[Rfam]
RNA sequence: GCCGCGCCUACCUCGACGGAGGGAAAACCGGGACACCUUCACCCGGCUGGCGCGGCACCCAAACGAAGG
Numbered sequence: 001g002c003c004g005c006g007c008c009u010a011c012c013u014c015g016a017c018g019g020a021g022g023g024a025a026a027a028c029c030g031g032g033a034c035a036c037c038u039u040c041a042c043c044c045g046g047c048u049g050g051c052g053c054g055g056c057a058c059c060c061a062a063a064c065g066a067a068g069g
Base pairs, nucleotide, nucleotide: 001056002055003054004053005052006051007050008049011022012021013020014019028046029045030044031043032042036069037068038067039066040065
The record is a 69-nucleotide RNA from Aromatoleum aromaticum, which matches "int-alpA RNA" in Rfam. Rfam describes the family as follows. Acidobacteria (1 example), Planctomycetes (1 example), Proteobacteria. By type it is a small RNA.